TPP riboswitch aptamer (THI element): a 99-nucleotide RNA sequence from Priestia veravalensis. A search with the family's covariance model found it, with a score of 78 bits. Its family is annotated with thiamine pyrophosphate binding in the Gene Ontology. Lineage of the source: Bacteria > Bacillati > Bacilli > Bacillaceae > Priestia.

RNA sequence: AGAAUCCACUAGGGGUGCCGUUUGGCUGAGACAAGGAAUCUUGAUCCCUUUGAACCUGAUCUGGCUUAUACCAGCGUAGGAAAGUGGUACGGCGUUGUC
Numbered sequence: 001a002g003a004a005u006c007c008a009c010u011a012g013g014g015g016u017g018c019c020g021u022u023u024g025g026c027u028g029a030g031a032c033a034a035g036g037a038a039u040c041u042u043g044a045u046c047c048c049u050u051u052g053a054a055c056c057u058g059a060u061c062u063g064g065c066u067u068a069u070a071c072c073a074g075c076g077u078a079g080g081a082a083a084g085u086g087g088u089a090c091g092g093c094g095u096u097g098u099c
Stems, first nucleotide, its partner, number of pairs: 006087005011049004016043001017026003033042003055080004061074004